[Rfam]
The family of this 110-nucleotide RNA sequence from Virgibacillus sp. MSP4-1 is "PyrR binding site". A reference for the family is Bonner et al. (2001), "Molecular recognition of pyr mRNA by the Bacillus subtilis attenuation regulatory protein PyrR", Nucleic Acids Res. By type it is a cis-regulatory element. The organism belongs to Virgibacillus, within Bacteria. From the family's description: This family represents the PyrR binding site and terminator structure. Gene Ontology terms of the family: pyrimidine nucleobase biosynthetic process and pyrimidine nucleobase transport.
RNA sequence: AGGACCUUUAAAUGAGUCCAGAGAGGCUGCAGAAGGUCGCAAAAUGAUUGGCGUAACUAAGUAUGGUUACGUAUACCUCUUUGCGACUUGUGCAAAGAGGUUUUUUUAAU
Numbered sequence: 001a002g003g004a005c006c007u008u009u010a011a012a013u014g015a016g017u018c019c020a021g022a023g024a025g026g027c028u029g030c031a032g033a034a035g036g037u038c039g040c041a042a043a044a045u046g047a048u049u050g051g052c053g054u055a056a057c058u059a060a061g062u063a064u065g066g067u068u069a070c071g072u073a074u075a076c077c078u079c080u081u082u083g084c085g086a087c088u089u090g091u092g093c094a095a096a097g098a099g100g101u102u103u104u105u106u107u108a109a110u
Base pairs, nucleotide, nucleotide: 003038004037005036006035007034008033009032013031014030015028016027017026018025054069055068056067057066058065059064071105073103075101076100077099078098079097080096081095082094083093084092